A member of the RNA family "MIR5534 microRNA precursor family" from Oryza glumipatula, 113 nucleotides long. The family's consensus secondary structure was predicted with RNAalifold. The source organism's lineage runs through Eukaryota, Viridiplantae, Mesangiospermae, Oryzinae and Oryza. The match comes from Rfam's covariance-model search (90 bits).
RNA sequence: GACUUUAGCGCCUUGACGAUAAUAGCUAGAAUGGCCGUUGCGAUGGAGGAUUGCCCCCCCCCCCCCCCCCGAUGAGGCUGCCAUUCUAGCUGUUGUCGUCGAGGCGCUAAAGU
Numbered sequence: 001g002a003c004u005u006u007a008g009c010g011c012c013u014u015g016a017c018g019a020u021a022a023u024a025g026c027u028a029g030a031a032u033g034g035c036c037g038u039u040g041c042g043a044u045g046g047a048g049g050a051u052u053g054c055c056c057c058c059c060c061c062c063c064c065c066c067c068c069c070c071g072a073u074g075a076g077g078c079u080g081c082c083a084u085u086c087u088a089g090c091u092g093u094u095g096u097c098g099u100c101g102a103g104g105c106g107c108u109a110a111a112g113u
Stems, first nucleotide, its partner, number of pairs: 002113034037078002041074002044071003048067002